[Rfam]
RNA: mir-27 microRNA precursor family
RNA sequence: CUGGGCUGCAGGACUUAGUUCACACGUGAACAGUGAGAUUUAUCGUGUUCACAGUGGCUAAGUUCCGCACCGGUG
Numbered sequence: 001c002u003g004g005g006c007u008g009c010a011g012g013a014c015u016u017a018g019u020u021c022a023c024a025c026g027u028g029a030a031c032a033g034u035g036a037g038a039u040u041u042a043u044c045g046u047g048u049u050c051a052c053a054g055u056g057g058c059u060a061a062g063u064u065c066c067g068c069a070c071c072g073g074u075g
Stems, first nucleotide, its partner, number of pairs: 011065010026052007